A member of the RNA family "Mycobacterium smegmatis small RNA 1" from Mycolicibacterium gilvum, 314 nucleotides long. NCBI's taxonomy places the organism under Bacteria, Bacillati, Mycobacteriales, Mycobacterium, Mycolicibacterium gilvum. For this family Rfam cites "Ms1, a novel sRNA interacting with the RNA polymerase core in mycobacteria" (Hnilicova et al., Nucleic Acids Res, 2014). The base pairs follow the family's consensus structure, which was predicted with CMfinder. Mycobacterium smegmatis small RNA 1 is highly expressed during stationary phase of growth. Ms1 RNA directly interacts with RNA polymerase (RNAP), but in a different way than 6S, which is present in other bacteria. Ms1 does not require the presence of the main sigma factor for RNAP interaction. There is evidence that Ms1 RNA may function similar to 6S RNA in M. smegmatis which does not have 6S RNA. Rfam's curators put it in the seed alignment.
[Rfam]
Nucleotides: 314
Stems, first nucleotide, its partner, number of pairs: 003065002006062007016052002021049002025045006066257009077245005084238003088234003093230002098113004119221006125210005130203004136197006145190003149185006159178007258306011270294003
Number, partner (000 for none) and nucleotide at each position: 001000a002000c003065g004064g005000a006062a007061g008060u009059u010058g011057a012056g013000c014000a015000a016052g017051g018000c019000c020000a021049a022048g023000g024000c025045c026044g027043a028042g029041c030040c031000g032000g033000a034000a035000g036000a037000g038000a039000a040030g041029g042028c043027u044026c045025g046000a047000u048022c049021u050000c051017c052016c053000g054000a055000a056012c057011u058010c059009a060008g061007c062006u063000c064004c065003c066257c067256a068255g069254c070253a071252c072251g073250g074249g075000u076000c077245c078244c079243g080242g081241a082000a083000c084238c085237c086236a087000c088234g089233c090232g091000g092000a093230g094229c095000a096000c097000a098113u099112a100111c101110c102000g103000c104000c105000a106000u107000a108000c109000a110101g111100g112099u113098a114000a115000a116000a117000g118000c119221g120220u121219u122218g123217c124216g125210g126209g127208c128207c129206u130203g131202c132201g133200u134000a135000g136197u137196u138195g139194c140193g141192a142000a143000a144000a145190u146189c147188g148000a149185a150184u151183g152182a153181c154180c155000u156000c157000g158000a159178c160177g161176g162175c163174c164173c165172u166000u167000u168000g169000g170000g171000u172165g173164g174163g175162g176161c177160u178159g179000c180154g181153g182152u183151c184150a185149u186000a187000g188147c189146g190145a191000g192141u193140c194139g195138c196137a197136a198000a199000g200133g201132c202131g203130c204000c205000g206129a207128g208127g209126c210125c211000a212000c213000c214000c215000a216124c217123g218122c219121a220120a221119c222000c223000c224000a225000u226000c227000a228000c229094g230093c231000a232090c233089g234088c235000u236086u237085g238084g239000u240000a241081u242080c243079c244078g245077g246000a247000u248000u249074c250073c251072c252071g253070u254069g255068u256067u257066g258306g259305c260304g261303g262302g263301c264300g265299g266298u267297g268296a269000g270294c271293c272292g273000a274000u275000g276000u277000g278000g279000u280000c281000g282000g283000a284000a285000g286000a287000c288000c289000a290000u291000a292272c293271g294270g295000a296268u297267c298266g299265c300264c301263g302262c303261c304260c305259g306258c307000u308000u309000c310000a311000u312000u313000u314000u